[Rfam]
RNA: Bacterial RNase P class A
Organism: Seleniivibrio woodruffii
RNA sequence: AAAGAAGACCGGACGGUCGCCGGCACAUUGUGCGGGAGGAAAGUCCGGACACCGAAGGGCGGGAUGGCCGAUAACGUCGGCCUGUUGCGAAACAGGGACAGUGCCACAGAGAACAGACCGCCGCACGAAAGUGCGGUAAGGGUGAAACGGCGGUGUAAGAGACCACCGCGCCUGCGGCAACGCAGGCGGCAGGGCAAACCCCAUCCGGUGCAAUGCCAAAUAGGCAGACAGUUAAGAACGGCCCGUUCUUUGUCUGCGGGUGGGCAGCUUGACCCCGUGAGCAAUUGCGGGGCUGGAUAAAUGACCGUUAGAACAGAAUCCGGCUUACGGGUCUUCUUUCCUU
Numbered sequence: 001a002a003a004g005a006a007g008a009c010c011g012g013a014c015g016g017u018c019g020c021c022g023g024c025a026c027a028u029u030g031u032g033c034g035g036g037a038g039g040a041a042a043g044u045c046c047g048g049a050c051a052c053c054g055a056a057g058g059g060c061g062g063g064a065u066g067g068c069c070g071a072u073a074a075c076g077u078c079g080g081c082c083u084g085u086u087g088c089g090a091a092a093c094a095g096g097g098a099c100a101g102u103g104c105c106a107c108a109g110a111g112a113a114c115a116g117a118c119c120g121c122c123g124c125a126c127g128a129a130a131g132u133g134c135g136g137u138a139a140g141g142g143u144g145a146a147a148c149g150g151c152g153g154u155g156u157a158a159g160a161g162a163c164c165a166c167c168g169c170g171c172c173u174g175c176g177g178c179a180a181c182g183c184a185g186g187c188g189g190c191a192g193g194g195c196a197a198a199c200c201c202c203a204u205c206c207g208g209u210g211c212a213a214u215g216c217c218a219a220a221u222a223g224g225c226a227g228a229c230a231g232u233u234a235a236g237a238a239c240g241g242c243c244c245g246u247u248c249u250u251u252g253u254c255u256g257c258g259g260g261u262g263g264g265c266a267g268c269u270u271g272a273c274c275c276c277g278u279g280a281g282c283a284a285u286u287g288c289g290g291g292g293c294u295g296g297a298u299a300a301a302u303g304a305c306c307g308u309u310a311g312a313a314c315a316g317a318a319u320c321c322g323g324c325u326u327a328c329g330g331g332u333c334u335u336c337u338u339u340c341c342u343u
Base pairs, nucleotide, nucleotide: 001339002338003337004336005335006334007333008332009331010330011328012309013308014307015306016305017304018303020036021035023033024032025031026030041326042325043324045323046322047321048320049319050210051209052208053207057244058243059242060241062206063205064204065203066202067081068080069079070078071077082095083094084093085092086091096201097200101199102198103195104194105193118141119140120137121136122135123134124133125132126131149167150166152164153163154162168190169188170187171186172185173184174183175182176181214266215265216264217263224257225256226255227254228253229252235249236248237247238246239245273292274291275290276289277288278287279286280285